[Rfam]
RNA: U7 small nuclear RNA
RNA sequence: AAGUGGUACAGUUCUUUUAGAAUUUCUGUGGCAGGUCUUCUUGUUUUUACUGGAAAAUCCUC
Numbered sequence: 001a002a003g004u005g006g007u008a009c010a011g012u013u014c015u016u017u018u019a020g021a022a023u024u025u026c027u028g029u030g031g032c033a034g035g036u037c038u039u040c041u042u043g044u045u046u047u048u049a050c051u052g053g054a055a056a057a058u059c060c061u062c
Stems, first nucleotide, its partner, number of pairs: 034059003038055004043050002